Rfam assigns this 184-nucleotide RNA from Kingdonia uniflora to the family "U2 spliceosomal RNA".
RNA sequence: UUAGAUUCCCAUGUGGACAUUUGGACAUCUGUUCUUAUCAGUUUAAUAUCUGAUACGUGAGCCAAUGGCUCGCACGAUAUUAAAUUAAUUUUUUAUUGGGAGAAAGUCCACCACAAUAGCUUGCUAUUGGGGCUCUUGAGUGUCGCCUUUGCAUUGCACUACUGCAAGGGCUGGCGCACCCCUA
Number, nucleotide and partner (000 for none) at each position: 001u000002u011003a000004g009005a000006u000007u000008c000009c004010c000011a002012u000013g000014u000015g000016g000017a000018c000019a000020u000021u000022u000023g000024g000025a000026c000027a000028u000029c000030u000031g000032u000033u000034c000035u000036u055037a054038u053039c052040a051041g050042u000043u000044u000045a000046a000047u000048a000049u000050c041051u040052g039053a038054u037055a036056c000057g073058u072059g071060a070061g069062c068063c067064a000065a000066u000067g063068g062069c061070u060071c059072g058073c057074a000075c000076g000077a000078u000079a000080u000081u000082a000083a000084a000085u000086u000087a000088a000089u000090u000091u000092u000093u000094u000095a000096u000097u000098g000099g000100g000101a000102g137103a136104a000105a134106g133107u132108c131109c130110a000111c000112c000113a000114c000115a000116a127117u126118a125119g124120c000121u000122u000123g000124c119125u118126a117127u116128u000129g000130g109131g108132g107133c106134u105135c000136u103137u102138g000139a000140g177141u176142g175143u174144c173145g172146c000147c169148u168149u167150u166151g165152c164153a000154u000155u000156g000157c000158a000159c000160u000161a000162c000163u000164g152165c151166a150167a149168g148169g147170g000171c000172u145173g144174g143175c142176g141177c140178a000179c000180c000181c000182c000183u000184a000

U2 is a small nuclear RNA (snRNA) component of the spliceosome (involved in pre-mRNA splicing). Complementary binding between U2 snRNA (in an area lying towards the 5' end but 3' to hairpin I) and the branchpoint sequence (BPS) of the intron results the bulging out of an unpaired adenosine, on the BPS, which initiates a nucleophilic attack at the intronic 5' splice site, thus starting the first of two transesterification reactions that mediate splicing. It scores 102 bits against the family's covariance model.